Rfam assigns this 88-nucleotide sequence from Silurus meridionalis to the family "Small nucleolar SNORD12/SNORD106". Its family is annotated with nucleolus and RNA processing in the Gene Ontology.

RNA sequence: ACAUGGCUCUGAUGACUAAACUUUUUUCCCCAGCAGAUCGACUCUGUUGACUCUUUUAAAAUUUAAGCCAAAGUGUCUGAGCCGCUGU
Numbered sequence: 001a002c003a004u005g006g007c008u009c010u011g012a013u014g015a016c017u018a019a020a021c022u023u024u025u026u027u028c029c030c031c032a033g034c035a036g037a038u039c040g041a042c043u044c045u046g047u048u049g050a051c052u053c054u055u056u057u058a059a060a061a062u063u064u065a066a067g068c069c070a071a072a073g074u075g076u077c078u079g080a081g082c083c084g085c086u087g088u
Base pairs, nucleotide, nucleotide: 001088002087003086004084005083006082007081